[Rfam]
Notes:
Rfam assigns this 88-nucleotide sequence from Bacillus sp. B1-b2 to the family "c-di-GMP-I riboswitch aptamer". The base pairs follow the family's consensus structure, which is taken from published work. The source organism's lineage runs through Bacteria, Bacillota, Bacilli, Caryophanales and Bacillus. The match comes from Rfam's covariance-model search (75 bits). About the family: GEMM was predicted in a large-scale screen for bacterial structured RNA regulatory elements.
RNA sequence: AUCAGAUAAAGGCAAACCCUUCGAAAGAGAGGGACGCAAAGUUACAGAUCUAAGGCAUAGCUAGGGCUAGGAUGGCUGGACUACCAAG
Numbered sequence: 001a002u003c004a005g006a007u008a009a010a011g012g013c014a015a016a017c018c019c020u021u022c023g024a025a026a027g028a029g030a031g032g033g034a035c036g037c038a039a040a041g042u043u044a045c046a047g048a049u050c051u052a053a054g055g056c057a058u059a060g061c062u063a064g065g066g067c068u069a070g071g072a073u074g075g076c077u078g079g080a081c082u083a084c085c086a087a088g
Stems, first nucleotide, its partner, number of pairs: 012037002017032002020029003040082004045078003048073003055067002058064001